[Rfam]
RNA sequence: AAAUAAGAUAGAGGAUGCAGUAUUUAAAAGUAAGUUUGUGGAGUUUAAGCAAACAGAGAAGCAAGCCAAAAGGAAAAACUGCCGAAACAUAUGGUUGAAAGCUUUAAGACUAUAUAGUUGGGGUUAUGUAGAAUAUACAUAACACUGUCAUAAAUUUAUUUAUGGUGAGCUAUCAUGAUG
Numbered sequence: 001a002a003a004u005a006a007g008a009u010a011g012a013g014g015a016u017g018c019a020g021u022a023u024u025u026a027a028a029a030g031u032a033a034g035u036u037u038g039u040g041g042a043g044u045u046u047a048a049g050c051a052a053a054c055a056g057a058g059a060a061g062c063a064a065g066c067c068a069a070a071a072g073g074a075a076a077a078a079c080u081g082c083c084g085a086a087a088c089a090u091a092u093g094g095u096u097g098a099a100a101g102c103u104u105u106a107a108g109a110c111u112a113u114a115u116a117g118u119u120g121g122g123g124u125u126a127u128g129u130a131g132a133a134u135a136u137a138c139a140u141a142a143c144a145c146u147g148u149c150a151u152a153a154a155u156u157u158a159u160u161u162a163u164g165g166u167g168a169g170c171u172a173u174c175a176u177g178a179u180g
Base pairs, nucleotide, nucleotide: 007174008173009172010171011170017082018081019080020079021078023076024075025074034066035065036064037063038062039061086119087118088117089115090114091113092112093111094110095109096108120146121145123143124142125141126140127139128138129137130136148165149164150163151162152161153160154159
This 180-nucleotide sequence from Clostridium sartagoforme belongs to the Rfam family "Lysine riboswitch aptamer". Pairs were carried over by alignment from the consensus structure, which is taken from published work. Riboswitches are metabolite binding domains within certain messenger RNAs that serve as precision sensors for their corresponding targets. Allosteric rearrangement of mRNA structure is mediated by ligand binding, and this results in modulation of gene expression. This family includes riboswitches that sense lysine in a number of genes involved in lysine metabolism, including lysC. NCBI's taxonomy places the organism under Bacteria, Bacillota, Eubacteriales, Clostridiaceae, Clostridium.